[Rfam]
This 117-nucleotide RNA sequence from Paenibacillus antarcticus belongs to the Rfam family "epsC RNA".
The family's consensus secondary structure is taken from published work.
A search with the family's covariance model found it, with a score of 60 bits.
RNA sequence: UGGGUGUAUCUGCUACCCCUUAUCGUUGCGGAAACUCGGCUGUGCUGUGGGUCAGUUCAUUGACCUUAGACGUGAAUCGUCAAGGGUGCGGUGCGGGGGAACGGAGGUAAGACCACU
Numbered sequence: 001u002g003g004g005u006g007u008a009u010c011u012g013c014u015a016c017c018c019c020u021u022a023u024c025g026u027u028g029c030g031g032a033a034a035c036u037c038g039g040c041u042g043u044g045c046u047g048u049g050g051g052u053c054a055g056u057u058c059a060u061u062g063a064c065c066u067u068a069g070a071c072g073u074g075a076a077u078c079g080u081c082a083a084g085g086g087u088g089c090g091g092u093g094c095g096g097g098g099g100a101a102c103g104g105a106g107g108u109a110a111g112a113c114c115a116c117u
Base pairs, nucleotide, nucleotide: 002018003017004016007034009032010031011030012029013028035097036096037095038094039092040091041090042089043088044087045086046085049066050065051064052063053062054061055060069081070080071079072078103117104116106114107113